The record is a 118-nucleotide RNA from Longibaculum muris, which matches "Ribosomal protein L20 leader" in Rfam. Rfam classes the family as a cis-regulatory leader. Lineage of the source: Bacteria > Bacillati > Erysipelotrichia > Erysipelotrichales > Longibaculum. This family is a putative r-protein leader autoregulatory structure found in B. subtilis and other low-GC Gram-positive bacteria. It is located in the 5' untranslated regions of mRNAs encoding initiation factor 3 followed by ribosomal proteins L35 and L20 (infC-rpmI-rplT). A Rho-independent transcription terminator structure that is probably involved in regulation is included at the 3' end.

RNA sequence: AGUGGAAAGAAGAAGUGCCUGCUUCUCGCCUGAGUGUCUAUAACGCUAGGCAAAUGUCACUAAGAUACUUAUCUUAAUGUCAAUGUGGGUACUUAUGUGCUCACUUUUUAUUUGUACU
Number, nucleotide and partner (000 for none) at each position: 001a000002g000003u000004g000005g000006a000007a000008a000009g000010a000011a026012g025013a024014a023015g022016u021017g000018c000019c000020u000021g016022c015023u014024u013025c012026u011027c000028g051029c050030c049031u000032g000033a000034g046035u045036g044037u043038c000039u000040a000041u000042a000043a037044c036045g035046c034047u000048a000049g030050g029051c028052a000053a000054a000055u000056g000057u000058c000059a000060c000061u000062a000063a000064g000065a000066u000067a000068c000069u000070u000071a000072u000073c000074u000075u000076a000077a000078u000079g000080u000081c000082a000083a000084u000085g104086u103087g102088g101089g100090u099091a098092c097093u000094u000095a000096u000097g092098u091099g090100c089101u088102c087103a086104c085105u000106u000107u000108u000109u000110a000111u000112u000113u000114g000115u000116a000117c000118u000